[Rfam]
RNA sequence: AACCGAACAUCGACGCAAGCUCGUAUAAUUUUGGGAAUAUGGCCCAUAAGUUUCUACCAGGUGACCGUAAAUCGCCUGACUACGAGUGAAAGAGUGCCUAGG
Numbered sequence: 001a002a003c004c005g006a007a008c009a010u011c012g013a014c015g016c017a018a019g020c021u022c023g024u025a026u027a028a029u030u031u032u033g034g035g036a037a038u039a040u041g042g043c044c045c046a047u048a049a050g051u052u053u054c055u056a057c058c059a060g061g062u063g064a065c066c067g068u069a070a071a072u073c074g075c076c077u078g079a080c081u082a083c084g085a086g087u088g089a090a091a092g093a094g095u096g097c098c099u100a101g102g
Stems, first nucleotide, its partner, number of pairs: 019087007029049002032046004058078007
RNA: Purine riboswitch aptamer
Organism: Brevibacillus sp. WF146